RNA sequence: GAGGCGUGUGAUGAAGUGUUGUCCUUAGGGCGGCGGUGGCGGCCGUCUUGGUCUCCGUUUGCGCUGCCGCCCCGUGAUAGGCUGGUCAUAGUUACACUGACGCCCC
Numbered sequence: 001g002a003g004g005c006g007u008g009u010g011a012u013g014a015a016g017u018g019u020u021g022u023c024c025u026u027a028g029g030g031c032g033g034c035g036g037u038g039g040c041g042g043c044c045g046u047c048u049u050g051g052u053c054u055c056c057g058u059u060u061g062c063g064c065u066g067c068c069g070c071c072c073c074g075u076g077a078u079a080g081g082c083u084g085g086u087c088a089u090a091g092u093u094a095c096a097c098u099g100a101c102g103c104c105c106c
Stems, first nucleotide, its partner, number of pairs: 001106001003104004
Source information
A member of the RNA family "Small nucleolar RNA SNORD46" from Eleutherodactylus coqui, 106 nucleotides long. Rfam describes the family as follows. U40 is a C/D box small nucleolar RNA, also known as snoZ153 in plants. The human sequence has also been annotated in the sequence databases as U46. The match comes from Rfam's covariance-model search (54 bits). The organism belongs to Eleutherodactylus, within Eukaryota. Pairs were carried over by alignment from the consensus structure. Gene Ontology terms of the family: RNA processing and nucleolus. The family has 5 seed sequences and 723 matches in Rfam 15.1. A reference for the family is Nicoloso et al. (1996), "Intron-encoded, antisense small nucleolar RNAs: the characterization of nine novel species points to their direct role as guides for the 2'-O-ribose methylation of rRNAs", J Mol Biol.